[Rfam]
RNA sequence: UUUAGAAUAGAAUGGUUAAGAGUCGCUUGGUUUGGGGUUCCUUGCUAGUUUCUUUCGUGUUCAGUUUGCAGCUUCGGCUCAGAUUAGAUACACUUGAGAAAUGAACGUAUCCCCAUGGA
Numbered sequence: 001u002u003u004a005g006a007a008u009a010g011a012a013u014g015g016u017u018a019a020g021a022g023u024c025g026c027u028u029g030g031u032u033u034g035g036g037g038u039u040c041c042u043u044g045c046u047a048g049u050u051u052c053u054u055u056c057g058u059g060u061u062c063a064g065u066u067u068g069c070a071g072c073u074u075c076g077g078c079u080c081a082g083a084u085u086a087g088a089u090a091c092a093c094u095u096g097a098g099a100a101a102u103g104a105a106c107g108u109a110u111c112c113c114c115a116u117g118g119a
Stems, first nucleotide, its partner, number of pairs: 001020005025045002029041002034114004048102006059091002064084002070079003

The record is a 119-nucleotide sequence, which matches "RAGATH-11 RNA" in Rfam. The literature on the family includes a 2015 paper in Nat Chem Biol by Weinberg et al., "New classes of self-cleaving ribozymes revealed by comparative genomics analysis". Rfam classes the family as a small RNA. The base pairs follow the family's consensus structure, which is taken from published work. Rfam 15.1 lists 87 matches to the family in 4 species. Rfam's curators put it in the seed alignment.